[Rfam]
RNA sequence: GUCACUGUAAGAUAUGUUUGAUAUUCUUGGUUGUUGAUAUGAAAAUUAACCAGGAAUCACACAUAUCAGUGCAGAGAA
Numbered sequence: 001g002u003c004a005c006u007g008u009a010a011g012a013u014a015u016g017u018u019u020g021a022u023a024u025u026c027u028u029g030g031u032u033g034u035u036g037a038u039a040u041g042a043a044a045a046u047u048a049a050c051c052a053g054g055a056a057u058c059a060c061a062c063a064u065a066u067c068a069g070u071g072c073a074g075a076g077a078a
Base pairs, nucleotide, nucleotide: 005074006073007072008071009070011067012066013065014064015063016062017061019059020058021057022056024054025053029051030050031049032048033047
RNA: mir-190 microRNA precursor family
Organism: Trichogramma brassicae